RNA sequence: GGGACAGGGGGGUCUCCGCCGGUCGGCGGGGCCUGUCCACGGGUCGCGUGAGGACGCGGCCGAGUGGUUGUCGCUCGGGGGUGAUCGCCG
Numbered sequence: 001g002g003g004a005c006a007g008g009g010g011g012g013u014c015u016c017c018g019c020c021g022g023u024c025g026g027c028g029g030g031g032c033c034u035g036u037c038c039a040c041g042g043g044u045c046g047c048g049u050g051a052g053g054a055c056g057c058g059g060c061c062g063a064g065u066g067g068u069u070g071u072c073g074c075u076c077g078g079g080g081g082u083g084a085u086c087g088c089c090g
Base pairs, nucleotide, nucleotide: 002038003037004036005035006034007033008032014031015030016029017028018027019026020025042061043060044059045058046057047056048055049054

This 90-nucleotide sequence from Streptomyces sp. SPB074 belongs to the Rfam family "che1 RNA". The organism belongs to Streptomyces, within Bacteria. The family's RNA type in Rfam is small RNA. The family's consensus secondary structure is taken from published work.